[Rfam]
RNA sequence: ACUGGAAAUAGUAGCGUAUUUCUGUAAGCCAAGUGGUAGUCUAUAAAGAGCUGAAUCCAUUUGUUGGUGGAAUCACGGUUGCUUGGUUGUCUCGUCGAAGACAGUGUCUUGCAGAGUUUGGUGUCAACAUUCGGGUCCGAGCGUAAGCUUGGAUUGGUAGGUUGUUCAAUACUGGGGAAACGCCCGAGGGUAGCAAUACAGCAGGGAAAACUCAGAGCACUAAUACGGCUGUCAAGUUGGCACGUUGGAGGGAAUUUAUCAAGUAGCUGCCAUCAACAGUGGGGACUACCUCUUUUUGU
Numbered sequence: 001a002c003u004g005g006a007a008a009u010a011g012u013a014g015c016g017u018a019u020u021u022c023u024g025u026a027a028g029c030c031a032a033g034u035g036g037u038a039g040u041c042u043a044u045a046a047a048g049a050g051c052u053g054a055a056u057c058c059a060u061u062u063g064u065u066g067g068u069g070g071a072a073u074c075a076c077g078g079u080u081g082c083u084u085g086g087u088u089g090u091c092u093c094g095u096c097g098a099a100g101a102c103a104g105u106g107u108c109u110u111g112c113a114g115a116g117u118u119u120g121g122u123g124u125c126a127a128c129a130u131u132c133g134g135g136u137c138c139g140a141g142c143g144u145a146a147g148c149u150u151g152g153a154u155u156g157g158u159a160g161g162u163u164g165u166u167c168a169a170u171a172c173u174g175g176g177g178a179a180a181c182g183c184c185c186g187a188g189g190g191u192a193g194c195a196a197u198a199c200a201g202c203a204g205g206g207a208a209a210a211c212u213c214a215g216a217g218c219a220c221u222a223a224u225a226c227g228g229c230u231g232u233c234a235a236g237u238u239g240g241c242a243c244g245u246u247g248g249a250g251g252g253a254a255u256u257u258a259u260c261a262a263g264u265a266g267c268u269g270c271c272a273u274c275a276a277c278a279g280u281g282g283g284g285a286c287u288a289c290c291u292c293u294u295u296u297u298g299u
Stems, first nucleotide, its partner, number of pairs: 001040003004023007028037003043297001045295006052288001054287001056285003060281001062278009076269012090253004095248001100246003104243004108236002111232004116226002118223007125164004130159001132157001134155009165171001172215005183206003190199003
RNA: Metazoan signal recognition particle RNA
Organism: Circinella minor